[Rfam]
RNA sequence: GGUUCUAUAGUCUAGUGGUUAGGACAUUGGAUUCUGACUCCAGUAACCCCUGUUCAAAUCAGGGUAGAACCU
Numbered sequence: 001g002g003u004u005c006u007a008u009a010g011u012c013u014a015g016u017g018g019u020u021a022g023g024a025c026a027u028u029g030g031a032u033u034c035u036g037a038c039u040c041c042a043g044u045a046a047c048c049c050c051u052g053u054u055c056a057a058a059u060c061a062g063g064g065u066a067g068a069a070c071c072u
Base pairs, nucleotide, nucleotide: 001071002070003069004068005067006066007065010025011024012023013022027043028042029041030040031039048064049063050062051061052060